About this RNA: Rfam assigns this 95-nucleotide sequence from Branchiostoma floridae to the family "mir-2060 microRNA precursor family". Its family is annotated with miRNA-mediated post-transcriptional gene silencing and RISC complex in the Gene Ontology. Lineage of the source: Eukaryota > Deuterostomia > Leptocardii > Branchiostomatidae > Branchiostoma. A search with the family's covariance model found it, with a score of 83 bits. The family's consensus secondary structure was predicted with RNAalifold.
RNA sequence: GGUUAUCUGUGUGUGGAUGGUGUUUAGCAACAGGGAUUAGGUAUGUUUACCUGUGUGUGGAUGGUGUUCAGCAACAGGGACGGGUAUGUUUACCU
Numbered sequence: 001g002g003u004u005a006u007c008u009g010u011g012u013g014u015g016g017a018u019g020g021u022g023u024u025u026a027g028c029a030a031c032a033g034g035g036a037u038u039a040g041g042u043a044u045g046u047u048u049a050c051c052u053g054u055g056u057g058u059g060g061a062u063g064g065u066g067u068u069c070a071g072c073a074a075c076a077g078g079g080a081c082g083g084g085u086a087u088g089u090u091u092a093c094c095u
Stems, first nucleotide, its partner, number of pairs: 004086007018076002021073004026068004031063002034056001036054001038053006